[Rfam]
RNA sequence: GCGCAAGGACGGCCUUGCGUUUCCCAACAUCCGGCCGGGACGACCCGC
Numbered sequence: 001g002c003g004c005a006a007g008g009a010c011g012g013c014c015u016u017g018c019g020u021u022u023c024c025c026a027a028c029a030u031c032c033g034g035c036c037g038g039g040a041c042g043a044c045c046c047g048c
Base pairs, nucleotide, nucleotide: 001020002019003018004017005016006015007014008013036047037046038045039044